Source information:
This 72-nucleotide RNA sequence from Tepidanaerobacter acetatoxydans belongs to the Rfam family "tRNA". The organism belongs to Tepidanaerobacter acetatoxydans, within Bacteria. The base pairs follow the family's consensus structure, which is taken from published work. The match comes from Rfam's covariance-model search (76 bits).
RNA sequence: GCUGAUGUGGCUCAGUGGUAGAGCAGCGCACUCGUAAUGCGCAGGUCGCCGGUUCAAAUCCGGCCAUCAGCU
Numbered sequence: 001g002c003u004g005a006u007g008u009g010g011c012u013c014a015g016u017g018g019u020a021g022a023g024c025a026g027c028g029c030a031c032u033c034g035u036a037a038u039g040c041g042c043a044g045g046u047c048g049c050c051g052g053u054u055c056a057a058a059u060c061c062g063g064c065c066a067u068c069a070g071c072u
Stems, first nucleotide, its partner, number of pairs: 001071007010024004026042005048064005